[Rfam]
RNA sequence: GGGGCUGACCGAAAGGUCUUGGUCCACCGAAACGGCGUGGGGAUCCCGC
Numbered sequence: 001g002g003g004g005c006u007g008a009c010c011g012a013a014a015g016g017u018c019u020u021g022g023u024c025c026a027c028c029g030a031a032a033c034g035g036c037g038u039g040g041g042g043a044u045c046c047c048g049c
Stems, first nucleotide, its partner, number of pairs: 002025005007018004